A member of the RNA family "Archaeal large subunit ribosomal RNA" from Halococcoides cellulosivorans, 449 nucleotides of a longer RNA. NCBI's taxonomy places the organism under Archaea, Methanobacteriati, Halobacteriales, Haloarculaceae, Halococcoides. Its family is annotated with ribosome and structural constituent of ribosome in the Gene Ontology. The match comes from Rfam's covariance-model search (2839 bits). Pairs were carried over by alignment from the consensus structure, which is taken from published work.

[Rfam]
RNA sequence: CCGACCGAAACAUGUCGAAGCAUGACCUCUGCUGAGGUAGUCUGUGGGGUAGAGCGACUGAUUGCCGUGUCCGCCUCCGAGAGGAGUCGGCGCGGCUGUCAAACUCCGAACCUACAGACGCCGUCGAUGCAGGGAGUCCGGUGUGCGGAGUAAGUCUGUGCACCAAAAGGGAGACAACCCAGAGUUAGGUUAAGGUCCCCAAGUGUGGAUUAAGUGCGAUCAAAGGUGGUCCCGAGCCCCAGACAGCCGGGAGGUGAGCUUAGAAGCAGCUACCCUCCAAGAAAAGCGUAACAGCUUACCGGCCGAGGUUCGGGGCGCCCAAAAUGAUCGGGGCUCAAAUCCACCACCGAGACCUGACCACACCCGUCACAGGGUGAUUGCGUAGGUCGGCGCUCCGCGCGGGUGGAAGUACGGGCGAGAGUUCGUAUGGACCGCGUGGUGACGCAAAU
Numbered sequence: 001c002c003g004a005c006c007g008a009a010a011c012a013u014g015u016c017g018a019a020g021c022a023u024g025a026c027c028u029c030u031g032c033u034g035a036g037g038u039a040g041u042c043u044g045u046g047g048g049g050u051a052g053a054g055c056g057a058c059u060g061a062u063u064g065c066c067g068u069g070u071c072c073g074c075c076u077c078c079g080a081g082a083g084g085a086g087u088c089g090g091c092g093c094g095g096c097u098g099u100c101a102a103a104c105u106c107c108g109a110a111c112c113u114a115c116a117g118a119c120g121c122c123g124u125c126g127a128u129g130c131a132g133g134g135a136g137u138c139c140g141g142u143g144u145g146c147g148g149a150g151u152a153a154g155u156c157u158g159u160g161c162a163c164c165a166a167a168a169g170g171g172a173g174a175c176a177a178c179c180c181a182g183a184g185u186u187a188g189g190u191u192a193a194g195g196u197c198c199c200c201a202a203g204u205g206u207g208g209a210u211u212a213a214g215u216g217c218g219a220u221c222a223a224a225g226g227u228g229g230u231c232c233c234g235a236g237c238c239c240c241a242g243a244c245a246g247c248c249g250g251g252a253g254g255u256g257a258g259c260u261u262a263g264a265a266g267c268a269g270c271u272a273c274c275c276u277c278c279a280a281g282a283a284a285a286g287c288g289u290a291a292c293a294g295c296u297u298a299c300c301g302g303c304c305g306a307g308g309u310u311c312g313g314g315g316c317g318c319c320c321a322a323a324a325u326g327a328u329c330g331g332g333g334c335u336c337a338a339a340u341c342c343a344c345c346a347c348c349g350a351g352a353c354c355u356g357a358c359c360a361c362a363c364c365c366g367u368c369a370c371a372g373g374g375u376g377a378u379u380g381c382g383u384a385g386g387u388c389g390g391c392g393c394u395c396c397g398c399g400c401g402g403g404u405g406g407a408a409g410u411a412c413g414g415g416c417g418a419g420a421g422u423u424c425g426u427a428u429g430g431a432c433c434g435c436g437u438g439g440u441g442a443c444g445c446a447a448a449u
Base pairs, nucleotide, nucleotide: 001390002389003388004387005386006385011024012023013022014021015020026136027134028133029132030131031130032129036122037121038120040119041118042117043116044115045114046113047112052107053105054104060100061099062098064096065095066094067093068092069091073088075086076085077084078083140164141163142162143161144160145159146158147157148156169180170179171178184358185357186356187355188354189353190352194348195347196346203345205344206343207342208341209340210339225319226318227317229316230315231314232313233312234311235310236309237308238307246303247302248301249300250299252276253275254274257271258270259269277281282297286295287294359380360379361376362375363374364373365372391444393441395439396438397437398436399435400434401433402432409428410427411426412425413424414423415422416421